The record is a 75-nucleotide RNA from Cebus imitator, which matches "Small nucleolar RNA SNORD69" in Rfam. Its family is annotated with RNA processing and nucleolus in the Gene Ontology. Rfam classes the family as a C/D-box small nucleolar RNA. From the family's description: snoRNA HBII-210 belongs to the C/D family of snoRNAs. It is the human orthologue of the mouse MBII-210 and is predicted to guide the 2'O-ribose methylation of large 28S rRNA on residue G4464. For this family Rfam cites "RNomics: an experimental approach that identifies 201 candidates for novel, small, non-messenger RNAs in mouse" (Huttenhofer et al., EMBO J, 2001).

RNA sequence: AAACUGAGGCACAAGAUGAGAAAGAAGAUUUGAAUUAAUUAGAUAACUUGUAAAGUCCAUUCUAAGCCUCAGUUU
Numbered sequence: 001a002a003a004c005u006g007a008g009g010c011a012c013a014a015g016a017u018g019a020g021a022a023a024g025a026a027g028a029u030u031u032g033a034a035u036u037a038a039u040u041a042g043a044u045a046a047c048u049u050g051u052a053a054a055g056u057c058c059a060u061u062c063u064a065a066g067c068c069u070c071a072g073u074u075u
Base pairs, nucleotide, nucleotide: 001075002074003073004072005071006070007069008068009067010066